[Rfam]
RNA: tRNA
Organism: Ogataea philodendri
RNA sequence: GAUCUUUUGGUCUAAUGGUUAAGACAUUGAUUCUUCAUAUCAAUUAUAUCGGUUCGAUUCCGAUAAAGAUUA
Number, nucleotide and partner (000 for none) at each position: 001g071002a070003u069004c068005u067006u066007u065008u000009g000010g025011u024012c023013u022014a000015a000016u000017g000018g000019u000020u000021a000022a013023g012024a011025c010026a000027u043028u042029g041030a040031u039032u000033c000034u000035u000036c000037a000038u000039a031040u030041c029042a028043a027044u000045u000046a000047u000048a064049u063050c062051g061052g060053u000054u000055c000056g000057a000058u000059u000060c052061c051062g050063a049064u048065a007066a006067a005068g004069a003070u002071u001072a000